The record is a 306-nucleotide sequence from Malus baccata, which matches "Plant signal recognition particle RNA" in Rfam. The literature on the family includes a 2000 paper in Science by Batey et al., "Crystal structure of the ribonucleoprotein core of the signal recognition particle". Lineage of the source: Eukaryota > Viridiplantae > Tracheophyta > Maleae > Malus. The family's RNA type in Rfam is non-coding RNA gene.
[Rfam]
RNA sequence: GCCGAGCUUACUAACGAAAGCUUAUAACCCAAGUGGGGGCAACAAGGUGUUGGGACGCUGGUUCAGUCUCUGCGGGUUGGGUCCGUCGUGGCUCUAUUCUGGCCUGCCCAUUCCAAGCUGGGAGUUGGGCCGUGUGGCUUGAGCGAAGGCUCAGGCUUCAUGGUUCCUAGAGUGGAAGGCACUGCGUAAGGCUGGCUUCACAGAGCAACGAUUACUUCCCGCUCCCGGCAGUGGAAGGAUAACAGGUCGGUGCCACCCGGAUUCCACUAUGGCCCGCUAGACUGUUCCAAUUGAACCAACACUUUU
Numbered sequence: 001g002c003c004g005a006g007c008u009u010a011c012u013a014a015c016g017a018a019a020g021c022u023u024a025u026a027a028c029c030c031a032a033g034u035g036g037g038g039g040c041a042a043c044a045a046g047g048u049g050u051u052g053g054g055a056c057g058c059u060g061g062u063u064c065a066g067u068c069u070c071u072g073c074g075g076g077u078u079g080g081g082u083c084c085g086u087c088g089u090g091g092c093u094c095u096a097u098u099c100u101g102g103c104c105u106g107c108c109c110a111u112u113c114c115a116a117g118c119u120g121g122g123a124g125u126u127g128g129g130c131c132g133u134g135u136g137g138c139u140u141g142a143g144c145g146a147a148g149g150c151u152c153a154g155g156c157u158u159c160a161u162g163g164u165u166c167c168u169a170g171a172g173u174g175g176a177a178g179g180c181a182c183u184g185c186g187u188a189a190g191g192c193u194g195g196c197u198u199c200a201c202a203g204a205g206c207a208a209c210g211a212u213u214a215c216u217u218c219c220c221g222c223u224c225c226c227g228g229c230a231g232u233g234g235a236a237g238g239a240u241a242a243c244a245g246g247u248c249g250g251u252g253c254c255a256c257c258c259g260g261a262u263u264c265c266a267c268u269a270u271g272g273c274c275c276g277c278u279a280g281a282c283u284g285u286u287c288c289a290a291u292u293g294a295a296c297c298a299a300c301a302c303u304u305u306u
Base pairs, nucleotide, nucleotide: 001040002039003038004023005022006021007020008019009018011016028037029036030035044305045304046303047302048301049300050299051298052297053296056293057292059290061288064284065283066282067281069280072277073276074275075274076273077272078271079265080264081262082261083260084259085258088256089255090254091253093252099250100249101248102247103246104245105244106243108238109237111236112235113234114233115232117229118228119227120226121225122224123223124222125221127166128165129164130163131162132161133160134159136157137156138155139154140153141152142151143150144149167172174219175218176217177216178215185210186209187208192203193202194201